[Rfam]
t44 RNA: a 101-nucleotide sequence from Muribacter muris.
The family's consensus secondary structure was predicted with LocARNA.
The organism belongs to Muribacter, within Bacteria.
The literature on the family includes a 2002 paper in Nucleic Acids Res by Tjaden et al., "Transcriptome analysis of Escherichia coli using high-density oligonucleotide probe arrays".
It scores 65 bits against the family's covariance model.

RNA sequence: UUUAUGUUAAUCCAAAAUCACACACAUAUCAUUAACUGAUUAUCGGGGUGCUGUUAGAUAAUCUUUAACGGUCGAUUUAUCAGGGUAUGUGGAGGCUAAAC
Numbered sequence: 001u002u003u004a005u006g007u008u009a010a011u012c013c014a015a016a017a018u019c020a021c022a023c024a025c026a027u028a029u030c031a032u033u034a035a036c037u038g039a040u041u042a043u044c045g046g047g048g049u050g051c052u053g054u055u056a057g058a059u060a061a062u063c064u065u066u067a068a069c070g071g072u073c074g075a076u077u078u079a080u081c082a083g084g085g086u087a088u089g090u091g092g093a094g095g096c097u098a099a100a101c
Stems, first nucleotide, its partner, number of pairs: 023091008037082004042076004050072005
Dot-bracket structure: ......................((((((((......((((.((((....(((((.............)))))))))..)))).))))))))..........